[Rfam]
RNA sequence: GUUGAGACAACAUACUUCCUUAUAUCCCCAUAUACGGAAUCAAUCUAUGGAAUGUAAGGAAGUGUGUGGCCUCAGA
Number, nucleotide and partner (000 for none) at each position: 001g000002u000003u000004g000005a000006g000007a000008c069009a000010a067011c066012a065013u064014a063015c062016u061017u060018c059019c058020u057021u056022a055023u054024a053025u052026c000027c000028c050029c049030a048031u047032a046033u000034a000035c000036g000037g000038a000039a000040u000041c000042a000043a000044u000045c000046u032047a031048u030049g029050g028051a000052a025053u024054g023055u022056a021057a020058g019059g018060a017061a016062g015063u014064g013065u012066g011067u010068g000069g008070c000071c000072u000073c000074a000075g000076a000
Shown here is a 76-nucleotide RNA sequence from Anabarilius grahami, a member of the family "mir-1 microRNA precursor family". This family represents the microRNA (miRNA) mir-1 family. miRNAs are transcribed as ~70nt precursors (modelled here) and subsequently processed by the Dicer enzyme to give a ~22nt product. In this case the mature sequence comes from the 3' arm of the precursor. The source organism's lineage runs through Eukaryota, Actinopterygii, Actinopteri, Teleostei and Anabarilius. Gene Ontology terms of the family: RISC complex and miRNA-mediated post-transcriptional gene silencing.